[Rfam]
RNA sequence: CGGCGAAGCUAUCCUGUCCGUUACACAUGGGAGCACUCGGUUAUGCAGUGGGAGGGUAAUCCCUCCUUAGACGCCAGUCGUCAAUUGCGUGAUGUGAGGGUGGGUUAGAUGCCCA
Numbered sequence: 001c002g003g004c005g006a007a008g009c010u011a012u013c014c015u016g017u018c019c020g021u022u023a024c025a026c027a028u029g030g031g032a033g034c035a036c037u038c039g040g041u042u043a044u045g046c047a048g049u050g051g052g053a054g055g056g057u058a059a060u061c062c063c064u065c066c067u068u069a070g071a072c073g074c075c076a077g078u079c080g081u082c083a084a085u086u087g088c089g090u091g092a093u094g095u096g097a098g099g100g101u102g103g104g105u106u107a108g109a110u111g112c113c114c115a
Base pairs, nucleotide, nucleotide: 001020002019003018008034009033010032012031013030014029036098037097038096039095040093041092042091043090044089045088046087047086050067051066052065053064054063055062056061070082071081072080073079101115102114103113104112105111
This 115-nucleotide RNA sequence from Bacillus sp. FJAT-18017 belongs to the Rfam family "epsC RNA". The family's RNA type in Rfam is cis-regulatory element. Taxonomically the source falls in Bacillus (Bacteria, Bacillati, Bacilli, Caryophanales). A search with the family's covariance model found it, with a score of 90 bits. The base pairs follow the family's consensus structure, which is taken from published work.